The family of this 95-nucleotide RNA from Meloidogyne enterolobii is "mir-46/mir-47/mir-281 microRNA precursor family".
Pairs were carried over by alignment from the consensus structure, which was predicted with RNAalifold.
The family has 57 seed sequences and 307 matches in Rfam 15.1.
A search with the family's covariance model found it, with a score of 55 bits.
Rfam links the family to the GO terms RISC complex and miRNA-mediated post-transcriptional gene silencing.
On this family, see Lai et al., Genome Biol 2003: "Computational identification of Drosophila microRNA genes".
[Rfam]
Nucleotides: 095
Base pairs, nucleotide, nucleotide: 014083015082016081017080020077021076022075025071026070027069031066032065033064035062036061
Number, partner (000 for none) and nucleotide at each position: 001000g002000u003000u004000a005000a006000c007000a008000u009000u010000u011000c012000u013000g014083g015082a016081a017080g018000u019000g020077a021076g022075c023000c024000a025071u026070c027069c028000c029000u030000u031066g032065a033064c034000a035062g036061u037000u038000u039000a040000u041000a042000a043000c044000c045000g046000a047000g048000a049000g050000a051000c052000u053000u054000u055000u056000a057000a058000a059000g060000u061036g062035c063000u064033g065032u066031c067000a068000u069027g070026g071025a072000g073000u074000u075022g076021c077020u078000c079000u080017c081016u082015u083014c084000a085000a086000g087000u088000g089000g090000g091000g092000u093000u094000a095000a